The record is a 103-nucleotide sequence from Compostibacillus humi, which matches "SAM riboswitch aptamer (S box leader)" in Rfam.
About the family: The SAM riboswitch is found upstream of a number of genes which code for proteins involved in methionine or cysteine biosynthesis in Gram-positive bacteria.
RNA sequence: AUCUUAUCAAGAGAGGUGGAGGGACUGGCCCUGUGAAGCCUCGGCAGCGGACCUUUUUAGGUACUGUGCCAAUUCCAGUAGCAGAUUUGCUAGAAGAUAAGAA
Dot-bracket structure: .(((((((....(((((...(((.[[[[)))......)))))((((.((.((((....))))..))))))...(]]]](((((....)))))..)))))))).
The family's consensus secondary structure is taken from published work. The match comes from Rfam's covariance-model search (90 bits).